[Rfam]
RNA sequence: UACCCACGGGGAACAUUCAACGCUGUCGGUGAGUUUGAGCUUUGACCAAAACCAUCGACCGUUGACUGUACCCUGAGGGACG
Number, nucleotide and partner (000 for none) at each position: 001u082002a000003c000004c078005c077006a000007c075008g074009g000010g000011g000012a000013a000014c068015a067016u000017u065018c064019a063020a062021c061022g060023c000024u000025g059026u058027c057028g056029g055030u054031g053032a000033g052034u051035u050036u049037g000038a000039g000040c000041u000042u000043u000044g000045a000046c000047c000048a000049a036050a035051a034052c033053c031054a030055u029056c028057g027058a026059c025060c022061g021062u020063u019064g018065a017066c000067u015068g014069u000070a000071c000072c000073c000074u008075g007076a000077g005078g004079g000080a000081c000082g001
Notes:
The family of this 82-nucleotide RNA sequence from Amphiprion percula is "mir-181 microRNA precursor family". Rfam links the family to the GO terms miRNA-mediated post-transcriptional gene silencing and RISC complex.